[Rfam]
RNA sequence: AAAUAAUGUUAAUGUAAGUCGCUCUGGAUAAGAGCGUCUGCUAAAUGACUUAAA
Numbered sequence: 001a002a003a004u005a006a007u008g009u010u011a012a013u014g015u016a017a018g019u020c021g022c023u024c025u026g027g028a029u030a031a032g033a034g035c036g037u038c039u040g041c042u043a044a045a046u047g048a049c050u051u052a053a054a
Stems, first nucleotide, its partner, number of pairs: 013043001014041003020036006